[Rfam]
RNA sequence: GCCGAGCUUAGUUGCGUGAGCUUAUAACCCGUGUGGGGGCAUUAAGGUGAUGUGGACGCUGUUGUAGUGUUGCGGGCCUGGUCUGGGUGUGCUAUUGAUGGCCUGCCCGUUCCAAGUUGCAUAAUGGACCGCUUGGGGCCUAUGCGAAAGCUGAGCCUCACGAUCCAUAAUGUGGCAGGCACAGCAUGAGGCUGGCUUCACAGAGCAGCGACAACUGCCCGCUUCUAACGGUGGAAGGAUAACAGGCCGCUGCACUCCGGGACCAUCAUUUUUUUCUUUGUGAUGCGUAUAAAGUAUCCUCCUA
Numbered sequence: 001g002c003c004g005a006g007c008u009u010a011g012u013u014g015c016g017u018g019a020g021c022u023u024a025u026a027a028c029c030c031g032u033g034u035g036g037g038g039g040c041a042u043u044a045a046g047g048u049g050a051u052g053u054g055g056a057c058g059c060u061g062u063u064g065u066a067g068u069g070u071u072g073c074g075g076g077c078c079u080g081g082u083c084u085g086g087g088u089g090u091g092c093u094a095u096u097g098a099u100g101g102c103c104u105g106c107c108c109g110u111u112c113c114a115a116g117u118u119g120c121a122u123a124a125u126g127g128a129c130c131g132c133u134u135g136g137g138g139c140c141u142a143u144g145c146g147a148a149a150g151c152u153g154a155g156c157c158u159c160a161c162g163a164u165c166c167a168u169a170a171u172g173u174g175g176c177a178g179g180c181a182c183a184g185c186a187u188g189a190g191g192c193u194g195g196c197u198u199c200a201c202a203g204a205g206c207a208g209c210g211a212c213a214a215c216u217g218c219c220c221g222c223u224u225c226u227a228a229c230g231g232u233g234g235a236a237g238g239a240u241a242a243c244a245g246g247c248c249g250c251u252g253c254a255c256u257c258c259g260g261g262a263c264c265a266u267c268a269u270u271u272u273u274u275u276c277u278u279u280g281u282g283a284u285g286c287g288u289a290u291a292a293a294g295u296a297u298c299c300u301c302c303u304a
Stems, first nucleotide, its partner, number of pairs: 001040003004023007028037003043304002046301002049298005058290001060289003063285003067281002072277001074275003080264005086258002089255003093252002099249007107238002110236005116229004123223001125221001126166003130162002134160006141153002144151002174219005185210001187208001192203003
Description
The record is a 304-nucleotide RNA sequence from Triticum aestivum, which matches "Plant signal recognition particle RNA" in Rfam. A search with the family's covariance model found it, with a score of 170 bits. The family's consensus secondary structure is taken from published work.